[Rfam]
Description:
mir-14 microRNA precursor family: a 61-nucleotide sequence from Cotesia typhae. The source organism's lineage runs through Eukaryota, Protostomia, Altocrustacea, Apocrita and Cotesia. For this family Rfam cites "Direct sequencing and expression analysis of a large number of miRNAs in Aedes aegypti and a multi-species survey of novel mosquito miRNAs" (Li et al., BMC Genomics, 2009). The match comes from Rfam's covariance-model search (53 bits). Gene Ontology terms of the family: miRNA-mediated post-transcriptional gene silencing and RISC complex. The base pairs follow the family's consensus structure, which was predicted with RNAalifold.
RNA sequence: ACUGGGGGGGGGAAUCUGGCUGACUAAUUUUUUACCAGUCAGUCUUUUUCUCUCUCCUAUU
Dot-bracket structure: (.((((((.((((....((((.(((...........))).))))....)))).)))))).)